[Rfam]
RNA sequence: AGCAAAAUUAUUAGCUACAUUUGAUCUGAACUCGAUGUGGAGAAACACACAUUGGUCUUCAAAGCUCUCUGAUUGCU
Numbered sequence: 001a002g003c004a005a006a007a008u009u010a011u012u013a014g015c016u017a018c019a020u021u022u023g024a025u026c027u028g029a030a031c032u033c034g035a036u037g038u039g040g041a042g043a044a045a046c047a048c049a050c051a052u053u054g055g056u057c058u059u060c061a062a063a064g065c066u067c068u069c070u071g072a073u074u075g076c077u
Base pairs, nucleotide, nucleotide: 001077002076003075004074005073